[Rfam]
RNA sequence: UUGAUGCAAUGAUGAGUGCAUAGUUCAGCAGAUAAAAAUGAAGAAUAAUCAUGUCUUUCGCUCCUAACUGAUGCAUCAA
Dot-bracket structure: ...(((((...............................................................)))))...